[Rfam]
RNA sequence: CACAAAUUUUAAGCGCCAGAGCCUAGUUUUGUGCACAAAAGUAUAAAUUUGCACGAAUCAGGCUGACGAGGAAAGAGAUUAUCGAAAUUUCGGCGGAUGUCUCUUCGCACGCUCCAGUGCGUUAUGUAUUGGCAAAUAUGCAGGUGACUGCAAAACAAAUUCAAUACAGUGGAGAUUA
Numbered sequence: 001c002a003c004a005a006a007u008u009u010u011a012a013g014c015g016c017c018a019g020a021g022c023c024u025a026g027u028u029u030u031g032u033g034c035a036c037a038a039a040a041g042u043a044u045a046a047a048u049u050u051g052c053a054c055g056a057a058u059c060a061g062g063c064u065g066a067c068g069a070g071g072a073a074a075g076a077g078a079u080u081a082u083c084g085a086a087a088u089u090u091c092g093g094c095g096g097a098u099g100u101c102u103c104u105u106c107g108c109a110c111g112c113u114c115c116a117g118u119g120c121g122u123u124a125u126g127u128a129u130u131g132g133c134a135a136a137u138a139u140g141c142a143g144g145u146g147a148c149u150g151c152a153a154a155a156c157a158a159a160u161u162c163a164a165u166a167c168a169g170u171g172g173a174g175a176u177u178a
Stems, first nucleotide, its partner, number of pairs: 020064005026058002029055001073105005082093004106121005125168007139152005
Dot-bracket structure: ...................(((((.((.(.........................).)).)))))........(((((....((((....)))).......)))))(((((......)))))...(((((((.......(((((....))))).........)))))))..........
RNA: glmS glucosamine-6-phosphate activated ribozyme aptamer